[Rfam]
RNA sequence: GAAACAGGCUGUCCUAUCGCUCCGAAGAAUAUCGGUGAGGAAAGUCCGAACAGCAAAGAGCAUCAUGCUACCUAACGGGUAGGAGAGAAGCAGGUGACCGCUUCUCUACAGCUAGUGCCACAGAAAAUGUACCGCCACGCCCUCGGCGUGGUAAGGGUGAAAUGGUGGAGUAAGAGCCCACCGUGCCGGUGGUGACAUCGGUAGCAGGGUAAACCUCAUGAGCUGAAAGAUCAAAUAAGCCUUGAGUUUUCGUCGGCUCGGCGGAAACCUUCGGGUUCUCAGGGUGGGUAGAUUGAUAGAGGUUCUGAGUAAUCAGAAUCCCAGAUAAAUGAUAGGAGUCCUGCAUUCGCGGGAAACAGAAUUCGGCUUACAGGCCUGUUUCUUUU
Numbered sequence: 001g002a003a004a005c006a007g008g009c010u011g012u013c014c015u016a017u018c019g020c021u022c023c024g025a026a027g028a029a030u031a032u033c034g035g036u037g038a039g040g041a042a043a044g045u046c047c048g049a050a051c052a053g054c055a056a057a058g059a060g061c062a063u064c065a066u067g068c069u070a071c072c073u074a075a076c077g078g079g080u081a082g083g084a085g086a087g088a089a090g091c092a093g094g095u096g097a098c099c100g101c102u103u104c105u106c107u108a109c110a111g112c113u114a115g116u117g118c119c120a121c122a123g124a125a126a127a128u129g130u131a132c133c134g135c136c137a138c139g140c141c142c143u144c145g146g147c148g149u150g151g152u153a154a155g156g157g158u159g160a161a162a163u164g165g166u167g168g169a170g171u172a173a174g175a176g177c178c179c180a181c182c183g184u185g186c187c188g189g190u191g192g193u194g195a196c197a198u199c200g201g202u203a204g205c206a207g208g209g210u211a212a213a214c215c216u217c218a219u220g221a222g223c224u225g226a227a228a229g230a231u232c233a234a235a236u237a238a239g240c241c242u243u244g245a246g247u248u249u250u251c252g253u254c255g256g257c258u259c260g261g262c263g264g265a266a267a268c269c270u271u272c273g274g275g276u277u278c279u280c281a282g283g284g285u286g287g288g289u290a291g292a293u294u295g296a297u298a299g300a301g302g303u304u305c306u307g308a309g310u311a312a313u314c315a316g317a318a319u320c321c322c323a324g325a326u327a328a329a330u331g332a333u334a335g336g337a338g339u340c341c342u343g344c345a346u347u348c349g350c351g352g353g354a355a356a357c358a359g360a361a362u363u364c365g366g367c368u369u370a371c372a373g374g375c376c377u378g379u380u381u382c383u384u385u386u
Stems, first nucleotide, its partner, number of pairs: 001382010011371001012337007020037001022035004042369003046366005051225004060271001063221005068082005083109001084107008110216002115214002117210003132156002134152008164182005183205001184203008229294004239285006264278003268274001301320008